RNA: Burkholderia sRNA 11
RNA sequence: CCAUUCGCAAGGGAGCUUCCUAUGCGAAAACUCAUGGCCGCUAUCAUAGCGAGCCUGAUAGGGCUGAUCGCGCUGUCCGUGACGACCACGGCCGUCGCAUGCGGUGAUGCGAGCUACUCUUCCGAUGGCAAGUAAUCCCGCCGCCCGAAUGCGCCGCGUGCGCAACGAAAAAAGGCCUUCAUCCGACGAUGAAGGCCUUUUACU
Numbered sequence: 001c002c003a004u005u006c007g008c009a010a011g012g013g014a015g016c017u018u019c020c021u022a023u024g025c026g027a028a029a030a031c032u033c034a035u036g037g038c039c040g041c042u043a044u045c046a047u048a049g050c051g052a053g054c055c056u057g058a059u060a061g062g063g064c065u066g067a068u069c070g071c072g073c074u075g076u077c078c079g080u081g082a083c084g085a086c087c088a089c090g091g092c093c094g095u096c097g098c099a100u101g102c103g104g105u106g107a108u109g110c111g112a113g114c115u116a117c118u119c120u121u122c123c124g125a126u127g128g129c130a131a132g133u134a135a136u137c138c139c140g141c142c143g144c145c146c147g148a149a150u151g152c153g154c155c156g157c158g159u160g161c162g163c164a165a166c167g168a169a170a171a172a173a174g175g176c177c178u179u180c181a182u183c184c185g186a187c188g189a190u191g192a193a194g195g196c197c198u199u200u201u202a203c204u
Base pairs, nucleotide, nucleotide: 004028005027006026007025008024011020012019013018036055037054038053039051040050041049042048061146062145063144064143070098071097072096073094077091078090079089080088081087101141102140103139106137107136108135113129114128115127116126151163152162153161154160170201171200172199173198174197175196176195177194178193179192180191181190182189183188